This 157-nucleotide RNA from Rhamnella rubrinervis belongs to the Rfam family "Small nucleolar RNA snoR138".
By type it is an H/ACA-box small nucleolar RNA.
Rfam links the family to the GO terms nucleolus and RNA processing.
A search with the family's covariance model found it, with a score of 99 bits.
The family's consensus secondary structure was predicted with mfold.
[Rfam]
RNA sequence: UUUGCCUCCGAAUAGCCGGACGACUAAACUUGGAAACGAUGUCGUCUGGCUCAGACAGAGGCGCAUACCAAUUCGAAGCAGUUUGAGGGUGAGGAACUUAUUUAUUUUUAUUUUUUUCCUUUUGGCAUAUUCCUUUCCUAGAUAGCUUCGAACAUUU
Numbered sequence: 001u002u003u004g005c006c007u008c009c010g011a012a013u014a015g016c017c018g019g020a021c022g023a024c025u026a027a028a029c030u031u032g033g034a035a036a037c038g039a040u041g042u043c044g045u046c047u048g049g050c051u052c053a054g055a056c057a058g059a060g061g062c063g064c065a066u067a068c069c070a071a072u073u074c075g076a077a078g079c080a081g082u083u084u085g086a087g088g089g090u091g092a093g094g095a096a097c098u099u100a101u102u103u104a105u106u107u108u109u110a111u112u113u114u115u116u117u118c119c120u121u122u123u124g125g126c127a128u129a130u131u132c133c134u135u136u137c138c139u140a141g142a143u144a145g146c147u148u149c150g151a152a153c154a155u156u157u
Base pairs, nucleotide, nucleotide: 003063004062005061006060007059008058014051015050016049017048018047019046020045021044023042024041074150075149076148077147078146079145081126082125085121086120087119089118092109093108094107095106096105131142132141